[Rfam]
RNA sequence: AAUAAGUACAGCCGUGGGAAUCCGUGUUCAACGUUUGACCAUCCGUCUUAUUUGAAAAAUUUAUGAGAAAAUUAAAAAAACUUAGUUGCAUAAAGUACUAUUUAUGUUUUAUCAUAUAAUAACAAUAAAAAUAUUAAUCGUAAAAAAAUUUUAAAUAAAACGAACAGUCAAACAUAAACUGCACUUAUU
Numbered sequence: 001a002a003u004a005a006g007u008a009c010a011g012c013c014g015u016g017g018g019a020a021u022c023c024g025u026g027u028u029c030a031a032c033g034u035u036u037g038a039c040c041a042u043c044c045g046u047c048u049u050a051u052u053u054g055a056a057a058a059a060u061u062u063a064u065g066a067g068a069a070a071a072u073u074a075a076a077a078a079a080a081c082u083u084a085g086u087u088g089c090a091u092a093a094a095g096u097a098c099u100a101u102u103u104a105u106g107u108u109u110u111a112u113c114a115u116a117u118a119a120u121a122a123c124a125a126u127a128a129a130a131a132u133a134u135u136a137a138u139c140g141u142a143a144a145a146a147a148a149u150u151u152u153a154a155a156u157a158a159a160a161c162g163a164a165c166a167g168u169c170a171a172a173c174a175u176a177a178a179c180u181g182c183a184c185u186u187a188u189u
Base pairs, nucleotide, nucleotide: 027178028177030175034172035171036170037169038168039167042164044162045161046160048158049157050156051155
RNA: MIR812 microRNA precursor family